[Rfam]
RNA sequence: GGUGGAGAGCUCCAAAGGGAUCGCAUUGAUCUAAUGUUGAUUGGCUUUCUCUGAAACCCCGAAUGGAUGAAUCGAAUAUCAGUUGAUUAUUGUUACUACGAUAAGCUUUUCGUCGAUUCUGUUCGGUCAUUGGAUCAUGCGAUCCCUUCGGAAUUUUCCAU
Numbered sequence: 001g002g003u004g005g006a007g008a009g010c011u012c013c014a015a016a017g018g019g020a021u022c023g024c025a026u027u028g029a030u031c032u033a034a035u036g037u038u039g040a041u042u043g044g045c046u047u048u049c050u051c052u053g054a055a056a057c058c059c060c061g062a063a064u065g066g067a068u069g070a071a072u073c074g075a076a077u078a079u080c081a082g083u084u085g086a087u088u089a090u091u092g093u094u095a096c097u098a099c100g101a102u103a104a105g106c107u108u109u110u111c112g113u114c115g116a117u118u119c120u121g122u123u124c125g126g127u128c129a130u131u132g133g134a135u136c137a138u139g140c141g142a143u144c145c146c147u148u149c150g151g152a153a154u155u156u157u158c159c160a161u
Stems, first nucleotide, its partner, number of pairs: 002161005008155002011152003015148007023140004028136009
RNA: mir-393 microRNA precursor family